Shown here is a 128-nucleotide RNA, a member of the family "Hairpin ribozyme 1 from viruses-like metatranscriptomes".
The sequence is in the family's curated seed alignment.
Gene Ontology term of the family: RNA nuclease activity.
RNA sequence: CGUCGGUCCAUCGGGGCAUCACAGCGCUUGACUGUGUGAGGCUCGAUGGGAAGACAGCCAGGGAAACACGCAGUCUCAGCAUCCUACUCCUUUCGGGGGAUGAUCGCGACUACGGUACAUUAACUGGC
Numbered sequence: 001c002g003u004c005g006g007u008c009c010a011u012c013g014g015g016g017c018a019u020c021a022c023a024g025c026g027c028u029u030g031a032c033u034g035u036g037u038g039a040g041g042c043u044c045g046a047u048g049g050g051a052a053g054a055c056a057g058c059c060a061g062g063g064a065a066a067c068a069c070g071c072a073g074u075c076u077c078a079g080c081a082u083c084c085u086a087c088u089c090c091u092u093u094c095g096g097g098g099g100a101u102g103a104u105c106g107c108g109a110c111u112a113c114g115g116u117a118c119a120u121u122a123a124c125u126g127g128c
Stems, first nucleotide, its partner, number of pairs: 002055003009048007017038002020036005057128005069114002072111004
Dot-bracket structure: .(((....(((((((.((.(((((.......)))))))...)))))))....))).(((((.......((.((((................................)))).)).........)))))